[Rfam]
RNA sequence: UGAGUGGUUUAGGUAGUUUCAUGUUGUUGGGCUUCCAUUUCUCUCUCUGCAACAGGAAACUGUCUCAACUGCCAC
Dot-bracket structure: ...((((((.(((((((((..((((((.(((.............))).))))))..))))))))).))))))...